The record is a 45-nucleotide sequence from Serratia proteamaculans, which matches "Guanidine-II riboswitch aptamer (mini-ykkC)" in Rfam. The sequence is in the family's curated seed alignment. NCBI's taxonomy places the organism under Bacteria, Pseudomonadati, Pseudomonadota, Serratia, Serratia proteamaculans.

RNA sequence: UAAACGGGACGACCUGUUUACGCAUCUGUAUCCGGGGACGACCCC
Numbered sequence: 001u002a003a004a005c006g007g008g009a010c011g012a013c014c015u016g017u018u019u020a021c022g023c024a025u026c027u028g029u030a031u032c033c034g035g036g037g038a039c040g041a042c043c044c045c
Base pairs, nucleotide, nucleotide: 001020002019003018004017005016006015007014008013034045035044036043037042